[Rfam]
RNA sequence: UUAUAUAGGUGUAUGUAAUUGCGGGGUUUUAAGUUUUACGGGAAAUCUAACCGAAAGUUUUUUAUUUAAGAAAUUUUCGGUUGGGUUUCCCGUAAAGCUUAAAACCCCACAAUUACAUACGUCUAUAUAA
Numbered sequence: 001u002u003a004u005a006u007a008g009g010u011g012u013a014u015g016u017a018a019u020u021g022c023g024g025g026g027u028u029u030u031a032a033g034u035u036u037u038a039c040g041g042g043a044a045a046u047c048u049a050a051c052c053g054a055a056a057g058u059u060u061u062u063u064a065u066u067u068a069a070g071a072a073a074u075u076u077u078c079g080g081u082u083g084g085g086u087u088u089c090c091c092g093u094a095a096a097g098c099u100u101a102a103a104a105c106c107c108c109a110c111a112a113u114u115a116c117a118u119a120c121g122u123c124u125a126u127a128u129a130a
Stems, first nucleotide, its partner, number of pairs: 001130021023108003027104015070089007
MIR9555 microRNA precursor family: a 130-nucleotide sequence from Brassica oleracea.
Gene Ontology terms of the family: miRNA-mediated post-transcriptional gene silencing and RISC complex.
The match comes from Rfam's covariance-model search (134 bits).